[Rfam]
RNA: mir-302 microRNA precursor family
RNA sequence: CCACAACUUAAAUGUGGAUGUACUUGCUUUGUUCCUGAUUAGUAAGUGCUUCCAUGUUUUGGUGAUGG
Numbered sequence: 001c002c003a004c005a006a007c008u009u010a011a012a013u014g015u016g017g018a019u020g021u022a023c024u025u026g027c028u029u030u031g032u033u034c035c036u037g038a039u040u041a042g043u044a045a046g047u048g049c050u051u052c053c054a055u056g057u058u059u060u061g062g063u064g065a066u067g068g
Base pairs, nucleotide, nucleotide: 001068002067003066006063007062008061010059011058012057013056014055015054016053017052018051020049021048022047023046024045025044026043027042028041